[Rfam]
RNA sequence: GUUCAAGGAUGCUUCAAAAUAUUUGCUACUCUUGAAAAUCAGUGACGACAUUCAAAUCACCAAGAUCGCUGAGAAC
Numbered sequence: 001g002u003u004c005a006a007g008g009a010u011g012c013u014u015c016a017a018a019a020u021a022u023u024u025g026c027u028a029c030u031c032u033u034g035a036a037a038a039u040c041a042g043u044g045a046c047g048a049c050a051u052u053c054a055a056a057u058c059a060c061c062a063a064g065a066u067c068g069c070u071g072a073g074a075a076c
Base pairs, nucleotide, nucleotide: 001076002075003074004073

Shown here is a 76-nucleotide RNA sequence from Aphanomyces invadans, a member of the family "Small nucleolar RNA SNORD24".
By type it is a C/D-box small nucleolar RNA.
NCBI's taxonomy places the organism under Eukaryota, Sar, Saprolegniales, Verrucalvaceae, Aphanomyces.
A search with the family's covariance model found it, with a score of 56 bits.
Gene Ontology terms of the family: nucleolus and RNA processing.